[Rfam]
RNA: DUF805 RNA
RNA sequence: CAACUGUGGAGUCCAGAAACCAUAUAAAAAACGGGGCAGAGCCGAAAAGCCUUAGGAGUAGGAAGACG
Dot-bracket structure: .....((((..........))))...........(((....[[.....))).........]]......
Numbered sequence: 001c002a003a004c005u006g007u008g009g010a011g012u013c014c015a016g017a018a019a020c021c022a023u024a025u026a027a028a029a030a031a032c033g034g035g036g037c038a039g040a041g042c043c044g045a046a047a048a049g050c051c052u053u054a055g056g057a058g059u060a061g062g063a064a065g066a067c068g
Stems, first nucleotide, its partner, number of pairs: 006023004035051003042062002